[Rfam]
A member of the RNA family "sok antitoxin (CssrC)" from Escherichia coli, 175 nucleotides long. The family's consensus secondary structure is taken from published work. The family has 91 seed sequences and 305 matches in Rfam 15.1. NCBI's taxonomy places the organism under Bacteria, Pseudomonadota, Gammaproteobacteria, Enterobacterales, Escherichia coli. Rfam classes the family as an antitoxin RNA.
RNA sequence: GGGUGCUUGAGGCUAUCUGCCUCAGGCAUGAACACCAAAGGCAGAUAGAGAAAAGCCCCAGUUAACAUUACGCGUCCUGCAAGACGUUUAACAUUAAUCUGAGGCUCAAUCUAUGAACGGCAAAUCUAGGUUAGCCUCUUGCGUGCCGAAAGGCAAGGAGAAGCAGGCUAUGAAG
Numbered sequence: 001g002g003g004u005g006c007u008u009g010a011g012g013c014u015a016u017c018u019g020c021c022u023c024a025g026g027c028a029u030g031a032a033c034a035c036c037a038a039a040g041g042c043a044g045a046u047a048g049a050g051a052a053a054a055g056c057c058c059c060a061g062u063u064a065a066c067a068u069u070a071c072g073c074g075u076c077c078u079g080c081a082a083g084a085c086g087u088u089u090a091a092c093a094u095u096a097a098u099c100u101g102a103g104g105c106u107c108a109a110u111c112u113a114u115g116a117a118c119g120g121c122a123a124a125u126c127u128a129g130g131u132u133a134g135c136c137u138c139u140u141g142c143g144u145g146c147c148g149a150a151a152g153g154c155a156a157g158g159a160g161a162a163g164c165a166g167g168c169u170a171u172g173a174a175g
Base pairs, nucleotide, nucleotide: 001059002058003057005056006055007054008053013048014047015046016045017044018043019042020041021040022039026035060100061099083095101138102137103136104135105134108132109131110130111129112128113127115126116125142167144165146163